[Rfam]
Rfam assigns this 65-nucleotide RNA sequence from Pelusios castaneus to the family "Small nucleolar RNA SNORD42". From the family's description: snoRNA U42 is found in intron 3 of the ribosomal protein L23a (RPL23a) gene in humans and is also present in mice. The literature on the family includes a 2002 paper in Mol Cell Biol by Galardi et al., "Purified box C/D snoRNPs are able to reproduce site-specific 2'-O-methylation of target RNA in vitro". The source organism's lineage runs through Eukaryota, Metazoa, Dipnotetrapodomorpha, Tetrapoda and Pelusios. The family's RNA type in Rfam is C/D-box small nucleolar RNA.

RNA sequence: GUGCAAAUGAUGGAAAAUUACUUCAGCUGAGUACGGUGAUGUUCUCAAAGGAACCACUGAUGCAC
Numbered sequence: 001g002u003g004c005a006a007a008u009g010a011u012g013g014a015a016a017a018u019u020a021c022u023u024c025a026g027c028u029g030a031g032u033a034c035g036g037u038g039a040u041g042u043u044c045u046c047a048a049a050g051g052a053a054c055c056a057c058u059g060a061u062g063c064a065c
Base pairs, nucleotide, nucleotide: 001065002064003063004062005061